[Rfam]
RNA sequence: AGAUUAAAUCAGGGGAGCUUGAAAACAGGCUGAGAGGAAGGUUCAUCCUUCGACCCUUUACCUGAUGCGGAUAAUGCCGCCGGAGGAAGUUAUUUUGUUGAACUU
Numbered sequence: 001a002g003a004u005u006a007a008a009u010c011a012g013g014g015g016a017g018c019u020u021g022a023a024a025a026c027a028g029g030c031u032g033a034g035a036g037g038a039a040g041g042u043u044c045a046u047c048c049u050u051c052g053a054c055c056c057u058u059u060a061c062c063u064g065a066u067g068c069g070g071a072u073a074a075u076g077c078c079g080c081c082g083g084a085g086g087a088a089g090u091u092a093u094u095u096u097g098u099u100g101a102a103c104u105u
Stems, first nucleotide, its partner, number of pairs: 006093001008091001010089001011057004017030005037051005061086003067080004
Dot-bracket structure: .....(.(.(((((..(((((....)))))......(((((.....)))))..))))...(((...((((......))))...)))..).).)............